A member of the RNA family "M-box riboswitch aptamer (ykoK leader)" from Clostridium botulinum, 166 nucleotides long. Pairs were carried over by alignment from the consensus structure.
RNA sequence: UAAUAAUGUACGUUAGGUGAGGCUCCUAUAUAGAUAUACGCUACUGCCCGGAAACAUCGAGAGAUGCCAAUGGGUCACCAGGUAUUACCGAAGUAAGGUUUUACUUAAUGUAGCUGGCUGUGGUCCAAAGCUAUAUAGUGCUAAAACUCAACGAUUGAUGUUAAAG
Number, nucleotide and partner (000 for none) at each position: 001u000002a000003a000004u000005a162006a161007u160008g159009u158010a000011c157012g152013u151014u096015a000016g148017g147018u146019g000020a000021g142022g141023c140024u000025c000026c138027u137028a136029u135030a134031u133032a132033g131034a000035u000036a000037u000038a000039c000040g114041c113042u112043a111044c110045u000046g075047c074048c073049c072050g071051g000052a000053a000054a000055c066056a065057u064058c063059g000060a000061g000062a000063g058064a057065u056066g055067c000068c000069a000070a000071u050072g049073g048074g047075u046076c000077a000078c000079c000080a000081g105082g104083u103084a102085u000086u000087a099088c098089c097090g000091a000092a000093g000094u000095a000096a014097g089098g088099u087100u000101u000102u084103a083104c082105u081106u000107a000108a000109u000110g044111u043112a042113g041114c040115u000116g126117g125118c000119u000120g000121u000122g000123g000124u000125c117126c116127a000128a000129a000130g000131c033132u032133a031134u030135a029136u028137a027138g026139u000140g023141c022142u021143a000144a000145a000146a018147c017148u016149c000150a000151a013152c012153g000154a000155u000156u000157g011158a009159u008160g007161u006162u005163a000164a000165a000166g000

About the family: M-box riboswitch, also know as ykoK leader is described as a metaloregulatory RNA that sense divalent metals and function as a genetic control element of genes related to divalent metal transport in bacteria. Rfam's curators put it in the seed alignment.